RNA sequence: UAUGCUCGGGAUCGCCCUCCGUCAGCGCGUUGCGCCCACGGGGGCAUCCGUC
Numbered sequence: 001u002a003u004g005c006u007c008g009g010g011a012u013c014g015c016c017c018u019c020c021g022u023c024a025g026c027g028c029g030u031u032g033c034g035c036c037c038a039c040g041g042g043g044g045c046a047u048c049c050g051u052c
Stems, first nucleotide, its partner, number of pairs: 016044007025035004